Shown here is a 79-nucleotide sequence from Acipenser ruthenus, a member of the family "mir-27 microRNA precursor family". The literature on the family includes a 2005 paper in Genes Dev by Chen et al., "The developmental miRNA profiles of zebrafish as determined by small RNA cloning". The source organism's lineage runs through Eukaryota, Opisthokonta, Vertebrata, Chondrostei and Acipenser.
[Rfam]
RNA sequence: GUGAGGUGCAGGACUUAGCUAGUUGUGUGAACAGAUUUUGGCAAUCCCAUGUUCACAGUGGCUAAGUUCCGCUCCUCUG
Dot-bracket structure: ..........((((((((((......(((((((................)))))))...))))))))))..........